[Rfam]
RNA sequence: AUAACAAACAUAUAUGCACCUUGUAUAAGUUCAAGAAUAUGGCUUGAACGUUUCUACCAGCUACCUUAAAUGGCUUGUCUACAAGAUAAAGUAAGACCAAU
Number, nucleotide and partner (000 for none) at each position: 001a000002u000003a000004a000005c000006a000007a000008a000009c000010a000011u000012a000013u000014a000015u000016g000017c000018a087019c000020c085021u084022u083023g082024u081025a080026u000027a000028a000029g049030u048031u047032c046033a045034a044035g043036a000037a000038u000039a000040u000041g000042g000043c035044u034045u033046g032047a031048a030049c029050g000051u000052u000053u000054c000055u000056a000057c000058c077059a076060g074061c073062u072063a071064c000065c000066u000067u000068a000069a000070a000071u063072g062073g061074c060075u000076u059077g058078u000079c000080u025081a024082c023083a022084a021085g020086a000087u018088a000089a000090a000091g000092u000093a000094a000095g000096a000097c000098c000099a000100a000101u000
This 101-nucleotide sequence from Rossellomorea vietnamensis belongs to the Rfam family "Purine riboswitch aptamer".